[Rfam]
RNA: chrB-a RNA
RNA sequence: GCGCCGGGGACCGCGAUCUCCCCUUCAGGCAGGUGCCCAAGAAUCGCGUCCAUUUUUGAAAAGGACGCGCCGUG
Numbered sequence: 001g002c003g004c005c006g007g008g009g010a011c012c013g014c015g016a017u018c019u020c021c022c023c024u025u026c027a028g029g030c031a032g033g034u035g036c037c038c039a040a041g042a043a044u045c046g047c048g049u050c051c052a053u054u055u056u057u058g059a060a061a062a063g064g065a066c067g068c069g070c071c072g073u074g
Stems, first nucleotide, its partner, number of pairs: 006023005046068006